[Rfam]
RNA sequence: UUUUUAGGAAACCGGCGGCAGUUAACUACCGAGGAAUUCCUCGGUAGUUAACUGCCGAGGGAAAU
Numbered sequence: 001u002u003u004u005u006a007g008g009a010a011a012c013c014g015g016c017g018g019c020a021g022u023u024a025a026c027u028a029c030c031g032a033g034g035a036a037u038u039c040c041u042c043g044g045u046a047g048u049u050a051a052c053u054g055c056c057g058a059g060g061g062a063a064a065u
Stems, first nucleotide, its partner, number of pairs: 012061002016057014
The record is a 65-nucleotide sequence from Medicago truncatula, which matches "MIR2629 microRNA precursor family" in Rfam. A search with the family's covariance model found it, with a score of 67 bits.